[Rfam]
tRNA: a 73-nucleotide RNA from Vireo altiloquus. Pairs were carried over by alignment from the consensus structure, which is taken from published work. Transfer RNA (tRNA) molecules are approximately 80 nucleotides in length. The match comes from Rfam's covariance-model search (54 bits).
RNA sequence: GGGGAAUUAGUUCAAAUGGUAGAGCGCUCGCUUAGCAUGCGAGAGGUAGCGGGAUCGAUGCCCGCAUUCUCCA
Numbered sequence: 001g002g003g004g005a006a007u008u009a010g011u012u013c014a015a016a017u018g019g020u021a022g023a024g025c026g027c028u029c030g031c032u033u034a035g036c037a038u039g040c041g042a043g044a045g046g047u048a049g050c051g052g053g054a055u056c057g058a059u060g061c062c063c064g065c066a067u068u069c070u071c072c073a
Stems, first nucleotide, its partner, number of pairs: 001072007010025004027043005049065005